Source information: FMN riboswitch aptamer (RFN element): a 158-nucleotide RNA from Rhodobacteraceae bacterium 63075. It scores 114 bits against the family's covariance model. NCBI's taxonomy places the organism under Bacteria, Pseudomonadati, Pseudomonadota, Rhodobacterales, Paracoccaceae. The base pairs follow the family's consensus structure, which is taken from published work.
[Rfam]
RNA sequence: AGCCGUUCUCAGGGCGGGGUGAAAUUCCCCACCGGCGGUAAGCUCUUGCGAGGGCAAGCCCGCGAGCGCCUUGCGGCUUCUCAGGAAGCUGCUCGGGUCGAGCAGAUCAGGUGCAAAUCCUGAGCCGACGGUCACAGUCCGGAUGGGAGAGAACGAGG
Number, nucleotide and partner (000 for none) at each position: 001a000002g000003c000004c155005g154006u153007u152008c151009u150010c149011a000012g000013g000014g000015c000016g000017g029018g028019g027020u000021g000022a000023a000024a000025u000026u000027c019028c018029c017030c000031a138032c137033c127034g126035g063036c062037g061038g060039u000040a000041a000042g000043c000044u000045c000046u000047u000048g000049c000050g000051a000052g000053g000054g000055c000056a000057a000058g125059c124060c038061c037062g036063c035064g000065a000066g103067c102068g000069c000070c000071u000072u000073g000074c000075g000076g000077c000078u000079u000080c000081u000082c000083a000084g000085g000086a000087a000088g000089c000090u000091g000092c000093u000094c000095g000096g000097g000098u000099c000100g000101a000102g067103c066104a000105g000106a000107u123108c122109a121110g120111g119112u000113g000114c000115a000116a000117a000118u000119c111120c110121u109122g108123a107124g059125c058126c034127g033128a000129c141130g140131g139132u000133c000134a000135c000136a000137g032138u031139c131140c130141g129142g000143a000144u000145g000146g000147g000148a000149g010150a009151g008152a007153a006154c005155g004156a000157g000158g000